Rfam assigns this 87-nucleotide RNA from Atribacter laminatus to the family "c-di-GMP-I riboswitch aptamer". It scores 89 bits against the family's covariance model. The base pairs follow the family's consensus structure, which is taken from published work.
RNA sequence: AUAUAUUAAAGGCAAACUCUCCGAAAGGGGAGGACGCAAAACCACGAACCUAAAGCACGAAAGUGCUACGGCAGUCGGGUUGCCGGA
Number, nucleotide and partner (000 for none) at each position: 001a000002u000003a000004u000005a000006u000007u000008a000009a000010a000011g000012g037013c036014a000015a000016a000017c032018u031019c030020u029021c028022c027023g000024a000025a000026a000027g022028g021029g020030g019031a018032g017033g000034a000035c000036g013037c012038a000039a000040a081041a080042c079043c078044a000045c077046g076047a075048a000049c071050c070051u000052a000053a000054a000055g066056c065057a064058c063059g000060a000061a000062a000063g058064u057065g056066c055067u000068a000069c000070g050071g049072c000073a000074g000075u047076c046077g045078g043079g042080u041081u040082g000083c000084c000085g000086g000087a000